Shown here is a 134-nucleotide RNA sequence from Chrysochloris asiatica, a member of the family "Small nucleolar RNA SNORA31". The literature on the family includes a 2001 paper in EMBO J by Huttenhofer et al., "RNomics: an experimental approach that identifies 201 candidates for novel, small, non-messenger RNAs in mouse". The family's RNA type in Rfam is H/ACA-box small nucleolar RNA. Gene Ontology terms of the family: RNA processing and nucleolus. The family's consensus secondary structure was predicted with RNAalifold.
RNA sequence: AUGCAUCUGUGUGACAGAACUGGCGCAGUUACUGUCUGUUUCUAAGGUUCACACUACAGAUGCAAGAAAAAAGUCCCUAGUACUUUCUGUCUGCCUGCUUUUGUGGCAGCCAAGAUUGAUAGGGGACUACAGGU
Number, nucleotide and partner (000 for none) at each position: 001a000002u064003g063004c062005a061006u060007c059008u058009g000010u000011g000012u053013g052014a000015c000016a000017g049018a048019a000020c046021u000022g000023g041024c000025g039026c038027a037028g036029u000030u000031a000032c000033u000034g000035u000036c028037u027038g026039u025040u000041u023042c000043u000044a000045a000046g020047g000048u018049u017050c000051a000052c013053a012054c000055u000056a000057c000058a008059g007060a006061u005062g004063c003064a002065a000066g000067a000068a000069a000070a000071a000072a000073g000074u126075c125076c124077c123078u122079a000080g000081u000082a000083c118084u000085u000086u115087c114088u113089g000090u000091c109092u108093g107094c106095c105096u000097g000098c000099u000100u000101u000102u000103g000104u000105g095106g094107c093108a092109g091110c000111c000112a000113a088114g087115a086116u000117u000118g083119a000120u000121a000122g078123g077124g076125g075126a074127c000128u000129a000130c000131a000132g000133g000134u000